Rfam assigns this 136-nucleotide sequence to the family "LOOT RNA".
[Rfam]
RNA sequence: UGCCUAACCCUUAUAACCUAAAGGAUAUAAGGUAUGGCUCAUAUCCACUGCGACAUAGAGACGGCGUCUCUACCUACCACAUGUCGCAGUGGUCCUAUCCGCGAGGAUAGGAGGUGGUACCCGAAAGGGUGUCAUC
Numbered sequence: 001u002g003c004c005u006a007a008c009c010c011u012u013a014u015a016a017c018c019u020a021a022a023g024g025a026u027a028u029a030a031g032g033u034a035u036g037g038c039u040c041a042u043a044u045c046c047a048c049u050g051c052g053a054c055a056u057a058g059a060g061a062c063g064g065c066g067u068c069u070c071u072a073c074c075u076a077c078c079a080c081a082u083g084u085c086g087c088a089g090u091g092g093u094c095c096u097a098u099c100c101g102c103g104a105g106g107a108u109a110g111g112a113g114g115u116g117g118u119a120c121c122c123g124a125a126a127g128g129g130u131g132u133c134a135u136c
Stems, first nucleotide, its partner, number of pairs: 002038003009032007046091010056072007093112008113136010
By type it is a small RNA.